[Rfam]
RNA sequence: CUCGGUCCUCGGUAGUGGCCUUCGGAGCACGGCUCCGCGGGCCUCGAUCGAAGACCGGG
Number, nucleotide and partner (000 for none) at each position: 001c059002u058003c057004g056005g055006u054007c053008c000009u051010c050011g049012g048013u047014a000015g000016u000017g043018g042019c041020c040021u039022u000023c037024g036025g035026a034027g033028c032029a000030c000031g000032g028033c027034u026035c025036c024037g023038c000039g021040g020041g019042c018043c017044u000045c000046g000047a013048u012049c011050g010051a009052a000053g007054a006055c005056c004057g003058g002059g001
The record is a 59-nucleotide sequence from Auraticoccus cholistanensis, which matches "Actino-pnp RNA" in Rfam. The source organism's lineage runs through Bacteria, Actinomycetota, Actinomycetes, Propionibacteriaceae and Auraticoccus. It scores 67 bits against the family's covariance model. It is annotated as a cis-regulatory element.